[Rfam]
RNA sequence: GAUCAAGAAGCUCAGCCACACGGCCCCCCGGCCGGCUGACUGGCAACCGCCACUCGUAGGACGGUGCCCCCGAGGGAAGAUCGGCCCCCGCGCGAACACGCGCCGAGGGAAGAUACGAGC
Numbered sequence: 001g002a003u004c005a006a007g008a009a010g011c012u013c014a015g016c017c018a019c020a021c022g023g024c025c026c027c028c029c030g031g032c033c034g035g036c037u038g039a040c041u042g043g044c045a046a047c048c049g050c051c052a053c054u055c056g057u058a059g060g061a062c063g064g065u066g067c068c069c070c071c072g073a074g075g076g077a078a079g080a081u082c083g084g085c086c087c088c089c090g091c092g093c094g095a096a097c098a099c100g101c102g103c104c105g106a107g108g109g110a111a112g113a114u115a116c117g118a119g120c
Stems, first nucleotide, its partner, number of pairs: 001082004009041001012039005022033002042068003047064003085109003089105001090103005
Shown here is a 120-nucleotide RNA sequence from Corynebacterium marinum, a member of the family "SAM (S-adenosyl methionine) riboswitch aptamer". For this family Rfam cites "The aptamer core of SAM-IV riboswitches mimics the ligand-binding site of SAM-I riboswitches" (Weinberg et al., RNA, 2008). Rfam links the family to the GO terms regulation of gene expression and S-adenosylmethionine metabolic process. NCBI's taxonomy places the organism under Bacteria, Actinomycetota, Corynebacteriaceae, Corynebacterium, Corynebacterium marinum. It scores 59 bits against the family's covariance model.